[Rfam]
RNA: mraW RNA
Organism: Arthrobacter sp. RIT-PI-e
RNA sequence: ACGGAGUUCUUGGGUGAGACCUCCAGCCGCCGGAUGCGGUGCAGCACCUGGCUCCACUUCCCCGGAGCCAGGCGCGGAUCCUCCGGCCGGAUGGGGAUCUGAUCCAAGAGCGCGGCGUCU
Numbered sequence: 001a002c003g004g005a006g007u008u009c010u011u012g013g014g015u016g017a018g019a020c021c022u023c024c025a026g027c028c029g030c031c032g033g034a035u036g037c038g039g040u041g042c043a044g045c046a047c048c049u050g051g052c053u054c055c056a057c058u059u060c061c062c063c064g065g066a067g068c069c070a071g072g073c074g075c076g077g078a079u080c081c082u083c084c085g086g087c088c089g090g091a092u093g094g095g096g097a098u099c100u101g102a103u104c105c106a107a108g109a110g111c112g113c114g115g116c117g118u119c120u
Stems, first nucleotide, its partner, number of pairs: 010107006018099002021096005027090003031085004042077001044075002047072008
Dot-bracket structure: .........((((((..((.(((((.(((.((((.......(.((.((((((((..........)))))))).)).)....))))..))).))))).))..)))))).............